[Rfam]
RNA sequence: AGCUCAUCCAGAGGGGCAGAGGGACCGGCCCGAUGAAGCCCCGGCAACCGUUCGCCGGCGAAUCGUGUUCUCACCGCGCGAGGUCACCGGCGAAAGCGGUGCCAAUUCCGACCCGUCCGCGGGACAGAUGAGGA
Numbered sequence: 001a002g003c004u005c006a007u008c009c010a011g012a013g014g015g016g017c018a019g020a021g022g023g024a025c026c027g028g029c030c031c032g033a034u035g036a037a038g039c040c041c042c043g044g045c046a047a048c049c050g051u052u053c054g055c056c057g058g059c060g061a062a063u064c065g066u067g068u069u070c071u072c073a074c075c076g077c078g079c080g081a082g083g084u085c086a087c088c089g090g091c092g093a094a095a096g097c098g099g100u101g102c103c104a105a106u107u108c109c110g111a112c113c114c115g116u117c118c119g120c121g122g123g124a125c126a127g128a129u130g131a132g133g134a
Base pairs, nucleotide, nucleotide: 003132004131005130006129007128008127013042014041015040016039017038021031022030023029026110027109028108043103044102045101046100048099049098051094052093053092054091055090056089057088058087107126112123113122114121115120
The record is a 134-nucleotide RNA sequence from Saccharopolyspora thermophila, which matches "SAM riboswitch aptamer (S box leader)" in Rfam. A search with the family's covariance model found it, with a score of 77 bits. Taxonomically the source falls in Saccharopolyspora (Bacteria, Bacillati, Actinomycetota, Pseudonocardiaceae). About the family: The SAM riboswitch is found upstream of a number of genes which code for proteins involved in methionine or cysteine biosynthesis in Gram-positive bacteria.